[Rfam]
Nucleotides: 088
Stems, first nucleotide, its partner, number of pairs: 001088004006083001008081001011026006028044005048062004066080004
Number, partner (000 for none) and nucleotide at each position: 001088g002087g003086a004085a005000u006083g007000a008081g009000a010000u011026g012025a013024g014023g015022u016021c017000u018000g019000g020000u021016g022015g023014c024013c025012u026011u027000c028044u029043c030042g031041g032040u033000c034000u035000u036000c037000a038000a039000a040032a041031c042030c043029g044028a045000u046000g047000u048062g049061a050060g051059c052000u053000g054000u055000a056000u057000a058000a059051g060050c061049u062048c063000u064000g065000g066080u067079a068078g069077g070000u071000u072000c073000a074000a075000u076000u077069c078068c079067u080066g081008c082000c083006u084000c085004u086003u087002c088001c